[Rfam]
Shown here is a 172-nucleotide RNA sequence from Anaerohalosphaera lusitana, a member of the family "Group II catalytic intron D1-D4-3".
It scores 147 bits against the family's covariance model.
The base pairs follow the family's consensus structure.
RNA sequence: GCCAUCGCGAGGUGGGGUCUGAAGGAAGCCGCAGGCAAACCGCUGGCCUGACGAACAGGAAUCGCAUACGAGGCGGCCAUGCUGGAUGAGAAGGCGCAUAUCUUCAAAGUCCCAAAGCUACCCGGAAAGCAUGGUCGUAUAUGCGGCAGGCAUAAGCGUGAAAGCGGGUGUG
Numbered sequence: 001g002c003c004a005u006c007g008c009g010a011g012g013u014g015g016g017g018u019c020u021g022a023a024g025g026a027a028g029c030c031g032c033a034g035g036c037a038a039a040c041c042g043c044u045g046g047c048c049u050g051a052c053g054a055a056c057a058g059g060a061a062u063c064g065c066a067u068a069c070g071a072g073g074c075g076g077c078c079a080u081g082c083u084g085g086a087u088g089a090g091a092a093g094g095c096g097c098a099u100a101u102c103u104u105c106a107a108a109g110u111c112c113c114a115a116a117g118c119u120a121c122c123c124g125g126a127a128a129g130c131a132u133g134g135u136c137g138u139a140u141a142u143g144c145g146g147c148a149g150g151c152a153u154a155a156g157c158g159u160g161a162a163a164g165c166g167g168g169u170g171u172g
Stems, first nucleotide, its partner, number of pairs: 002015005030170003035165002041158004046151005062146006073138003077134007084112004090105004